[Rfam]
RNA sequence: GCGAGCAGAGUGUAUUUCCUUACCUCAAUAAAAAUUUGCGAAUUUUUAUUGAGGUAAGGAAAUACACUCUGCUCGC
Numbered sequence: 001g002c003g004a005g006c007a008g009a010g011u012g013u014a015u016u017u018c019c020u021u022a023c024c025u026c027a028a029u030a031a032a033a034a035u036u037u038g039c040g041a042a043u044u045u046u047u048a049u050u051g052a053g054g055u056a057a058g059g060a061a062a063u064a065c066a067c068u069c070u071g072c073u074c075g076c
Stems, first nucleotide, its partner, number of pairs: 007070024
RNA: mir-1 microRNA precursor family